mir-989 microRNA precursor family: a 115-nucleotide RNA from Hermetia illucens.
RNA sequence: GAUGUGGGAAACGGCCACUACCUCACGGUCACGUGAUUAGAAAAAAAUAAGUCCAUAACGUACUUUUUUCAAAUUCAAAUUUCAUGUGAUGUGACGUAGUGGAACAUUCCUGCUG
Numbered sequence: 001g002a003u004g005u006g007g008g009a010a011a012c013g014g015c016c017a018c019u020a021c022c023u024c025a026c027g028g029u030c031a032c033g034u035g036a037u038u039a040g041a042a043a044a045a046a047a048u049a050a051g052u053c054c055a056u057a058a059c060g061u062a063c064u065u066u067u068u069u070c071a072a073a074u075u076c077a078a079a080u081u082u083c084a085u086g087u088g089a090u091g092u093g094a095c096g097u098a099g100u101g102g103a104a105c106a107u108u109c110c111u112g113c114u115g
Stems, first nucleotide, its partner, number of pairs: 004113007015102007023094004029089004034084003

Pairs were carried over by alignment from the consensus structure, which was predicted with RNAalifold.
The family has 9 seed sequences and 57 matches in Rfam 15.1.
It scores 85 bits against the family's covariance model.